[Rfam]
RNA sequence: CAUAGCCAUCGGUAGGUGAGGCUACCGCAGGGAUACGGGUUGCUGCCGCAGAGUCGUGGAGACACGAUGAGAGGGCCAACAGUUCAUGUCGAAAAAGAAGGCGUGAAAUAGUGCAACAACAUUGCCCUGCGGAGCUAAAGCUUGAACGAUAGCUUGUAACU
Numbered sequence: 001c002a003u004a005g006c007c008a009u010c011g012g013u014a015g016g017u018g019a020g021g022c023u024a025c026c027g028c029a030g031g032g033a034u035a036c037g038g039g040u041u042g043c044u045g046c047c048g049c050a051g052a053g054u055c056g057u058g059g060a061g062a063c064a065c066g067a068u069g070a071g072a073g074g075g076c077c078a079a080c081a082g083u084u085c086a087u088g089u090c091g092a093a094a095a096a097g098a099a100g101g102c103g104u105g106a107a108a109u110a111g112u113g114c115a116a117c118a119a120c121a122u123u124g125c126c127c128u129g130c131g132g133a134g135c136u137a138a139a140g141c142u143u144g145a146a147c148g149a150u151a152g153c154u155u156g157u158a159a160c161u
Stems, first nucleotide, its partner, number of pairs: 005157002008154001010152001011147001013099001015142003020136003025132008039117005046074002049071001055066004083107003088102003